[Rfam]
RNA sequence: UGGUGACCUGAGGCUUCUUGGCUGUCACUCUGUCCCAGGCCCUCCUGGCCCGUGGGGCACAGCCUGAGUCCCAGUAAAGUCUGUCAGGUCCUGAACC
Numbered sequence: 001u002g003g004u005g006a007c008c009u010g011a012g013g014c015u016u017c018u019u020g021g022c023u024g025u026c027a028c029u030c031u032g033u034c035c036c037a038g039g040c041c042c043u044c045c046u047g048g049c050c051c052g053u054g055g056g057g058c059a060c061a062g063c064c065u066g067a068g069u070c071c072c073a074g075u076a077a078a079g080u081c082u083g084u085c086a087g088g089u090c091c092u093g094a095a096c097c
Stems, first nucleotide, its partner, number of pairs: 002096001004094001005090005011082006021075004027069004032064001034062001039058005044052001

A member of the RNA family "mir-8813 microRNA precursor family" from Canis lupus, 97 nucleotides long. Gene Ontology terms of the family: miRNA-mediated post-transcriptional gene silencing and RISC complex. Rfam 15.1 lists 307 matches to the family in 4 species. It scores 80 bits against the family's covariance model.